[Rfam]
RNA sequence: UAGGGGGGACAGGGUUCAAGUACCCCUCCCUGAGCCCAGGGUAACCCUAAAAGUGGAGGGGAA
Numbered sequence: 001u002a003g004g005g006g007g008g009a010c011a012g013g014g015u016u017c018a019a020g021u022a023c024c025c026c027u028c029c030c031u032g033a034g035c036c037c038a039g040g041g042u043a044a045c046c047c048u049a050a051a052a053g054u055g056g057a058g059g060g061g062a063a
Base pairs, nucleotide, nucleotide: 008042010040012037013036014035015034017032018031020029023061024060025059026058027057028056

Overview: Rfam assigns this 63-nucleotide sequence from Otolemur garnettii to the family "Gag/pol translational readthrough site". Its family is annotated with viral translational readthrough in the Gene Ontology. Rfam 15.1 lists 3,368 matches to the family in 94 species. A reference for the family is Wills et al. (1994), "Pseudoknot-dependent read-through of retroviral gag termination codons: importance of sequences in the spacer and loop 2", EMBO J. Rfam classes the family as a cis-regulatory element. The source organism's lineage runs through Eukaryota, Metazoa, Craniata, Sarcopterygii and Otolemur.